[Rfam]
RNA sequence: UAUUGGCUUUAGGGGUGUUCCGAGCGAACUGAGAUUAAACCCUUUGAACCUGAUUCGGGUAAUACCGACGAAGGGAAAAGCGAAGAAAUUCUU
Numbered sequence: 001u002a003u004u005g006g007c008u009u010u011a012g013g014g015g016u017g018u019u020c021c022g023a024g025c026g027a028a029c030u031g032a033g034a035u036u037a038a039a040c041c042c043u044u045u046g047a048a049c050c051u052g053a054u055u056c057g058g059g060u061a062a063u064a065c066c067g068a069c070g071a072a073g074g075g076a077a078a079a080g081c082g083a084a085g086a087a088a089u090u091c092u093u
Stems, first nucleotide, its partner, number of pairs: 006081005011043004016037001017029004049074003055068004

Description:
The record is a 93-nucleotide RNA from Solitalea canadensis, which matches "TPP riboswitch aptamer (THI element)" in Rfam. Lineage of the source: Bacteria > Sphingobacteriia > Sphingobacteriales > Sphingobacteriaceae > Solitalea canadensis. A search with the family's covariance model found it, with a score of 79 bits.